[Rfam]
The family of this 137-nucleotide sequence from Mesobacillus subterraneus is "PyrR binding site". Pairs were carried over by alignment from the consensus structure, which is taken from published work. The organism belongs to Mesobacillus, within Bacteria. The family has 41 seed sequences and 1,498 matches in Rfam 15.1. Rfam's curators write: This family represents the PyrR binding site and terminator structure. The family's RNA type in Rfam is cis-regulatory element.

RNA sequence: GGUACCUUUAAUUCAGUCCCGUGAGGCUGACAAGGACAGCGGAUGUAAUGAUGGCCAUUGGGUGAGGUAUACCCAUGCUCUUUGGUUUAUCAUGGCGGAAAGGCUACUUGUCGGAAAACGGCAAGUAGCCUUUUUUC
Dot-bracket structure: ....((((....((((((......)))))).))))..................((((..(((((.((.....)).)))))..)))).............((((((((((((((.....)))))))))))))).....
About this RNA: It scores 57 bits against the family's covariance model.